[Rfam]
The family of this 88-nucleotide sequence from Caldimonas caldifontis is "Burkholderia RNA 7 (anti-hemB)". From the family's description: This RNA motif was identified by computational search in b-proteobacteria Burkholderia. Co-purified with Hfq, expression confirmed by Northern blot. The source organism's lineage runs through Bacteria, Pseudomonadati, Betaproteobacteria, Sphaerotilaceae and Caldimonas. Rfam 15.1 lists 479 matches to the family in 458 species.
RNA sequence: UCCCUGCUUUUCCUCCCUGAGCAGGUGCCUUACCGUGAUGACAGCGUUAAGGCUUUGAAGCCCCAGUCCCCGACUGGGGCUCUUUCUU
Number, nucleotide and partner (000 for none) at each position: 001u000002c000003c025004c024005u023006g022007c021008u020009u000010u000011u000012c000013c000014u000015c000016c000017c000018u000019g000020a008021g007022c006023a005024g004025g003026u000027g053028c052029c051030u050031u049032a048033c000034c000035g000036u000037g000038a000039u000040g000041a000042c000043a000044g000045c000046g000047u000048u032049a031050a030051g029052g028053c027054u000055u000056u000057g000058a000059a000060g080061c079062c078063c077064c076065a075066g074067u073068c000069c000070c000071c000072g000073a067074c066075u065076g064077g063078g062079g061080c060081u000082c000083u000084u000085u000086c000087u000088u000
The match comes from Rfam's covariance-model search (61 bits).
Its family is annotated with protein binding and bacterial biofilm matrix in the Gene Ontology.
The base pairs follow the family's consensus structure, which is taken from published work.